[Rfam]
The family of this 71-nucleotide RNA from Kineococcus xinjiangensis is "tRNA".
A search with the family's covariance model found it, with a score of 76 bits.
NCBI's taxonomy places the organism under Bacteria, Actinomycetota, Actinomycetes, Kineosporiaceae, Kineococcus.
Rfam classes the family as a transfer RNA.
RNA sequence: GCGGGUGUAGCUCAAUGGUAGAGCUCCAGUCUUCCAAACUGGUGGUGCGGGUUCGAUUCCCGUCACCCGCU
Numbered sequence: 001g002c003g004g005g006u007g008u009a010g011c012u013c014a015a016u017g018g019u020a021g022a023g024c025u026c027c028a029g030u031c032u033u034c035c036a037a038a039c040u041g042g043u044g045g046u047g048c049g050g051g052u053u054c055g056a057u058u059c060c061c062g063u064c065a066c067c068c069g070c071u
Base pairs, nucleotide, nucleotide: 001070002069003068004067005066006065007064010024011023012022013021026042027041028040029039030038047063048062049061050060051059
A reference for the family is Hou (1993), "The tertiary structure of tRNA and the development of the genetic code", Trends Biochem Sci.